Rfam assigns this 56-nucleotide RNA from Ligustrum gracile to the family "Plastid-psbA-3 3UTR RNA".
The family is grouped with related families in Rfam's "Plastid-psbA 3UTR RNA clan".
The organism belongs to Ligustrum, within Eukaryota.
From the family's description: Plastid psbA-3 is a non-coding RNA (ncRNA) present in plastids.

RNA sequence: AAAGGAGCAAUAACGCCCUCUUGAUAGAACAAGAAAGAGUUUAUUGCUCCUUUAGU
Number, nucleotide and partner (000 for none) at each position: 001a053002a052003a051004g050005g049006a048007g047008c046009a045010a044011u043012a042013a040014c039015g000016c000017c000018c000019u034020c033021u032022u031023g030024a000025u000026a000027g000028a000029a000030c023031a022032a021033g020034a019035a000036a000037g000038a000039g014040u013041u000042u012043a011044u010045u009046g008047c007048u006049c005050c004051u003052u002053u001054a000055g000056u000
A reference for the family is Richter et al. (2023), "Retrograde signaling in plants: A critical review focusing on the GUN pathway and beyond", Plant Commun.